[Rfam]
RNA sequence: AAAUUUGCAAUUUUCAUUAAACAUCACUAUACUAAUAGUGUCAGGUAACUGACUAUGGUGAUAAACGCUAUACGCAAUAGGCGAUACGGACCCGGGGGCGGUACCCGGCGCCUCCACCAAAAAGGCCUUAAAAAUAGGCCCUUUUGGUGGGGGUGAAAUAGGAUCGACGUGCGUUGAAAGGUAUGGUUUUUGCCCGGCAUUGUACCGCCGUUAUCGGGCUAUAUCAAAUAAGUGCAGCUAAAAAUACUGCAUUCGUUGUUAAGAAUUUUACGGUUCCAACCCCUUCAAUGGGUGCGGGAUCUGCACCAGCUGUAGCAGCUGCUGCUUAAUUCUCAAUAACGCGGUCGGAGGGGCACCGGGCAACAGAAGCCCCUCGCU
Numbered sequence: 001a002a003a004u005u006u007g008c009a010a011u012u013u014u015c016a017u018u019a020a021a022c023a024u025c026a027c028u029a030u031a032c033u034a035a036u037a038g039u040g041u042c043a044g045g046u047a048a049c050u051g052a053c054u055a056u057g058g059u060g061a062u063a064a065a066c067g068c069u070a071u072a073c074g075c076a077a078u079a080g081g082c083g084a085u086a087c088g089g090a091c092c093c094g095g096g097g098g099c100g101g102u103a104c105c106c107g108g109c110g111c112c113u114c115c116a117c118c119a120a121a122a123a124g125g126c127c128u129u130a131a132a133a134a135u136a137g138g139c140c141c142u143u144u145u146g147g148u149g150g151g152g153g154u155g156a157a158a159u160a161g162g163a164u165c166g167a168c169g170u171g172c173g174u175u176g177a178a179a180g181g182u183a184u185g186g187u188u189u190u191u192g193c194c195c196g197g198c199a200u201u202g203u204a205c206c207g208c209c210g211u212u213a214u215c216g217g218g219c220u221a222u223a224u225c226a227a228a229u230a231a232g233u234g235c236a237g238c239u240a241a242a243a244a245u246a247c248u249g250c251a252u253u254c255g256u257u258g259u260u261a262a263g264a265a266u267u268u269u270a271c272g273g274u275u276c277c278a279a280c281c282c283c284u285u286c287a288a289u290g291g292g293u294g295c296g297g298g299a300u301c302u303g304c305a306c307c308a309g310c311u312g313u314a315g316c317a318g319c320u321g322c323u324g325c326u327u328a329a330u331u332c333u334c335a336a337u338a339a340c341g342c343g344g345u346c347g348g349a350g351g352g353g354c355a356c357c358g359g360g361c362a363a364c365a366g367a368a369g370c371c372c373c374u375c376g377c378u
Base pairs, nucleotide, nucleotide: 040053041052042051043050044049057194058193059192060191061190067187068186069185070184071183072182073181082173083172086170087169088168092108093107094106095105096104109155110154111153112152113151114150115149195210196209197208198207200221202219205217206216342358343357344356345355348375349374350373351372352371353370
RNA: Alphaproteobacteria transfer-messenger RNA